pan motif: an 83-nucleotide sequence from Clostridium butyricum. By type it is a cis-regulatory element. Lineage of the source: Bacteria > Bacillota > Eubacteriales > Clostridium > Clostridium butyricum. It is one of the family's seed sequences.
RNA sequence: UGGGUAGUAUCUUAUGGAGCUAUACCAGACUUUUUUCAUUAGAAUAUACUUACAACUCAUAUCUAUGCGAAUGAGAUUGAAAU
Numbered sequence: 001u002g003g004g005u006a007g008u009a010u011c012u013u014a015u016g017g018a019g020c021u022a023u024a025c026c027a028g029a030c031u032u033u034u035u036u037c038a039u040u041a042g043a044a045u046a047u048a049c050u051u052a053c054a055a056c057u058c059a060u061a062u063c064u065a066u067g068c069g070a071a072u073g074a075g076a077u078u079g080a081a082a083u
Stems, first nucleotide, its partner, number of pairs: 001027003004023005010018002053079003056075005062070002